RNA sequence: CACGGUGGACCCCCUGAUCGACCCACGGCAUGGAGCGGGGGACCCAGGUUCCUCGGUGCCGGCUCUGGCCGGCGCCUCGGGGUGAAGCCGCGGAUCCGCGCGGCCGGGCCAGCACCCUCGGCCCGAACCCGACAGCUCACCUCGCAGGCGAACGAGGGAGACAGC
Dot-bracket structure: (..............................)..((((((....(.................................)(((.....((((........))))..((((...........))))...))).........))))))....................
Shown here is a 165-nucleotide RNA sequence from Actinocatenispora rupis, a member of the family "c-di-AMP riboswitch aptamer (ydaO/yuaA leader)". The base pairs follow the family's consensus structure.